This 93-nucleotide RNA sequence from Saccharopolyspora thermophila belongs to the Rfam family "Glycine riboswitch aptamer".
RNA sequence: UGACGUCGUGCGGGAGAGACCUCGCUGCGGGCGGGGCGCCGAAGGAGCAACACUCCCCAGCAAACUCUCAGGCACCGUCACCGCACGGCACCA
Numbered sequence: 001u002g003a004c005g006u007c008g009u010g011c012g013g014g015a016g017a018g019a020c021c022u023c024g025c026u027g028c029g030g031g032c033g034g035g036g037c038g039c040c041g042a043a044g045g046a047g048c049a050a051c052a053c054u055c056c057c058c059a060g061c062a063a064a065c066u067c068u069c070a071g072g073c074a075c076c077g078u079c080a081c082c083g084c085a086c087g088g089c090a091c092c093a
Stems, first nucleotide, its partner, number of pairs: 006088008020036004038073003041069002045067003051060001
A search with the family's covariance model found it, with a score of 64 bits. The base pairs follow the family's consensus structure.